[Rfam]
RNA sequence: UAAGCAACUUUGUGAAGGGUUGUUGAACAACAGGCGUCAGCAGAGGUCAUAGUACCUACUUUACUCAAGGAAGUAGGGAAGGAC
Numbered sequence: 001u002a003a004g005c006a007a008c009u010u011u012g013u014g015a016a017g018g019g020u021u022g023u024u025g026a027a028c029a030a031c032a033g034g035c036g037u038c039a040g041c042a043g044a045g046g047u048c049a050u051a052g053u054a055c056c057u058a059c060u061u062u063a064c065u066c067a068a069g070g071a072a073g074u075a076g077g078g079a080a081g082g083a084c
Base pairs, nucleotide, nucleotide: 001025002024004023005022006021007020008019009018010017011016037044038043046084047083048082055077056076057075058074059073060072